[Rfam]
RNA sequence: GAUGACACUUUCUCCGGAAUCUCUGUACAUCCUUGAUGAUUUUUGUUGAACCCUUUUCCAUCUGAUGACUGUGGGCGUGUCAU
Numbered sequence: 001g002a003u004g005a006c007a008c009u010u011u012c013u014c015c016g017g018a019a020u021c022u023c024u025g026u027a028c029a030u031c032c033u034u035g036a037u038g039a040u041u042u043u044u045g046u047u048g049a050a051c052c053c054u055u056u057u058c059c060a061u062c063u064g065a066u067g068a069c070u071g072u073g074g075g076c077g078u079g080u081c082a083u
Stems, first nucleotide, its partner, number of pairs: 002083004
RNA: Small nucleolar RNA MBII-202
Organism: Scyliorhinus torazame